A member of the RNA family "Ribosomal protein L20 leader" from Lentibacillus cibarius, 131 nucleotides long. The source organism's lineage runs through Bacteria, Bacillati, Bacillota, Caryophanales and Lentibacillus. By type it is a cis-regulatory leader. The match comes from Rfam's covariance-model search (68 bits).
RNA sequence: UGAGACAAGUAGAAGCACCCGCUUCUCACCUGUUCGACGCUGGUAAUAAUGCAGUCGGCUGGUUUUAGUACUUUUCAGUAAACGAUGGAAGACGUGUGGGUGCAUUCGUGUGCUCACACGUUUUUGUCUGG
Numbered sequence: 001u002g003a004g005a006c007a008a009g010u011a012g013a014a015g016c017a018c019c020c021g022c023u024u025c026u027c028a029c030c031u032g033u034u035c036g037a038c039g040c041u042g043g044u045a046a047u048a049a050u051g052c053a054g055u056c057g058g059c060u061g062g063u064u065u066u067a068g069u070a071c072u073u074u075u076c077a078g079u080a081a082a083c084g085a086u087g088g089a090a091g092a093c094g095u096g097u098g099g100g101u102g103c104a105u106u107c108g109u110g111u112g113c114u115c116a117c118a119c120g121u122u123u124u125u126g127u128c129u130g131g
Base pairs, nucleotide, nucleotide: 011026012025013024014023015022016021028063029062030061036056037055038054039052040051095118096117097116098115099114100113101112102111103110104109